Rfam assigns this 100-nucleotide RNA sequence from Oscillibacter sp. 1-3 to the family "azaaromatic riboswitch aptamer (yjdF RNA)".
A search with the family's covariance model found it, with a score of 85 bits.
NCBI's taxonomy places the organism under Bacteria, Bacillati, Clostridia, Eubacteriales, Oscillibacter.
RNA sequence: AGACGCGGAGAUAAAAACACGGCCCGGUCGGUAGUCCGGGCGGCCCCGGACGGGGCUCAGUAACCUGCCUCCUUGGUUGUCCGUUCUCCGGAUAUUUCGG
Numbered sequence: 001a002g003a004c005g006c007g008g009a010g011a012u013a014a015a016a017a018c019a020c021g022g023c024c025c026g027g028u029c030g031g032u033a034g035u036c037c038g039g040g041c042g043g044c045c046c047c048g049g050a051c052g053g054g055g056c057u058c059a060g061u062a063a064c065c066u067g068c069c070u071c072c073u074u075g076g077u078u079g080u081c082c083g084u085u086c087u088c089c090g091g092a093u094a095u096u097u098c099g100g
Stems, first nucleotide, its partner, number of pairs: 006090006022041006042057006067077003